[Rfam]
The record is an 84-nucleotide RNA sequence from Actinomadura verrucosospora, which matches "SAH (S-adenosyl-L-homocysteine) riboswitch aptamer" in Rfam.
RNA sequence: CGGGCCGAGAGGCGCUGCAACGGACGCGCGGGCGUCCGCCACGCUCGGCCCGAGACCGGUUACACGCAAGGGCGCCUCCCAACG
Numbered sequence: 001c002g003g004g005c006c007g008a009g010a011g012g013c014g015c016u017g018c019a020a021c022g023g024a025c026g027c028g029c030g031g032g033c034g035u036c037c038g039c040c041a042c043g044c045u046c047g048g049c050c051c052g053a054g055a056c057c058g059g060u061u062a063c064a065c066g067c068a069a070g071g072g073c074g075c076c077u078c079c080c081a082a083c084g
Stems, first nucleotide, its partner, number of pairs: 002051007021038006